This 80-nucleotide RNA from Pelusios castaneus belongs to the Rfam family "Small nucleolar RNA SNORD87". The literature on the family includes a 2001 paper in EMBO J by Huttenhofer et al., "RNomics: an experimental approach that identifies 201 candidates for novel, small, non-messenger RNAs in mouse". The pairing is the family consensus, mapped onto this sequence. Rfam 15.1 lists 539 matches to the family in 430 species. Its family is annotated with nucleolus and RNA processing in the Gene Ontology. A search with the family's covariance model found it, with a score of 51 bits.
RNA sequence: GAUGGCCUAAUGAUGAUGCUCUUUUUGCCGUUUACCCAUCUGAUUUUUUUGAUGAGAACAUCUGAAUCUGAUGUGCCAUC
Numbered sequence: 001g002a003u004g005g006c007c008u009a010a011u012g013a014u015g016a017u018g019c020u021c022u023u024u025u026u027g028c029c030g031u032u033u034a035c036c037c038a039u040c041u042g043a044u045u046u047u048u049u050u051g052a053u054g055a056g057a058a059c060a061u062c063u064g065a066a067u068c069u070g071a072u073g074u075g076c077c078a079u080c
Base pairs, nucleotide, nucleotide: 001080002079003078004077005076006075
Dot-bracket structure: ((((((....................................................................))))))